A member of the RNA family "caulobacter sRNA CC2171" from Methylobacterium haplocladii, 172 nucleotides long. The literature on the family includes a 2008 paper in Mol Microbiol by Landt et al., "Small non-coding RNAs in Caulobacter crescentus". NCBI's taxonomy places the organism under Bacteria, Pseudomonadota, Alphaproteobacteria, Methylobacteriaceae, Methylobacterium. By type it is a small RNA. Pairs were carried over by alignment from the consensus structure, which was predicted with RNAalifold.
RNA sequence: CAACGAACGAAAGGAGGUGAUCCAGUGUCUCAUUGUCAUCAGCCGCUGUCAUCGGCGACCAGGACCUGGACCGUUACCUCCGGCGAGAGCAUCUAGCCCUCGCGGGACGCGCAUCAGGUUUCGUCGGACCGCGGUUCGGCAAUGGAAGGGCCGCCCUCAUCGGGGCGGCCCU
Numbered sequence: 001c002a003a004c005g006a007a008c009g010a011a012a013g014g015a016g017g018u019g020a021u022c023c024a025g026u027g028u029c030u031c032a033u034u035g036u037c038a039u040c041a042g043c044c045g046c047u048g049u050c051a052u053c054g055g056c057g058a059c060c061a062g063g064a065c066c067u068g069g070a071c072c073g074u075u076a077c078c079u080c081c082g083g084c085g086a087g088a089g090c091a092u093c094u095a096g097c098c099c100u101c102g103c104g105g106g107a108c109g110c111g112c113a114u115c116a117g118g119u120u121u122c123g124u125c126g127g128a129c130c131g132c133g134g135u136u137c138g139g140c141a142a143u144g145g146a147a148g149g150g151c152c153g154c155c156c157u158c159a160u161c162g163g164g165g166c167g168g169c170c171c172u
Stems, first nucleotide, its partner, number of pairs: 016023002031144007045059001047057004061074001063072001078106001080105003087099001089097002147172011